A member of the RNA family "Bacillus-plasmid RNA" from Patiria miniata, 56 nucleotides long. Rfam 15.1 lists 155 matches to the family in 128 species. The match comes from Rfam's covariance-model search (31 bits).
RNA sequence: UGUGUCAACUACCGGGGGUGGGGGGGGGGGGGGGGAGUGUUGACACAUUCAAUCCU
Numbered sequence: 001u002g003u004g005u006c007a008a009c010u011a012c013c014g015g016g017g018g019u020g021g022g023g024g025g026g027g028g029g030g031g032g033g034g035g036a037g038u039g040u041u042g043a044c045a046c047a048u049u050c051a052a053u054c055c056u
Stems, first nucleotide, its partner, number of pairs: 001047009